The record is a 128-nucleotide sequence from Dictyocaulus viviparus, which matches "Nematode snoRNA ceN39" in Rfam. Its family is annotated with RNA processing and nucleolus in the Gene Ontology. By type it is an H/ACA-box small nucleolar RNA. The base pairs follow the family's consensus structure, which was predicted with RNAalifold. A reference for the family is Jia et al. (2007), "Systematic identification of non-coding RNA 2,2,7-trimethylguanosine cap structures in Caenorhabditis elegans", BMC Mol Biol.
[Rfam]
RNA sequence: CAGGCGAUUAGGAACCAUCUAAUGCUUGUGCCUUAGUUGGGCCGUAUAUCGCCAAUAUCAUUUGUUCGUAUUUAAGGUCAUAUGUGUGUUUUUAUAACGCAUGUAUAUAACCAUUGCGACCUACAAGA
Number, nucleotide and partner (000 for none) at each position: 001c000002a000003g053004g052005c051006g050007a049008u000009u000010a000011g043012g042013a000014a000015c040016c039017a038018u000019c036020u035021a034022a033023u000024g031025c030026u000027u000028g000029u000030g025031c024032c000033u022034u021035a020036g019037u000038u017039g016040g015041g000042c012043c011044g000045u000046a000047u000048a000049u007050c006051g005052c004053c003054a000055a000056u000057a000058u000059c000060a000061u000062u000063u000064g000065u000066u119067c118068g117069u116070a114071u113072u000073u000074a000075a000076g112077g111078u110079c000080a106081u105082a000083u103084g102085u101086g100087u099088g098089u097090u096091u000092u000093u000094a000095u000096a090097a089098c088099g087100c086101a085102u084103g083104u000105a081106u080107a000108u000109a000110a078111c077112c076113a071114u070115u000116g069117c068118g067119a066120c000121c000122u000123a000124c000125a000126a000127g000128a000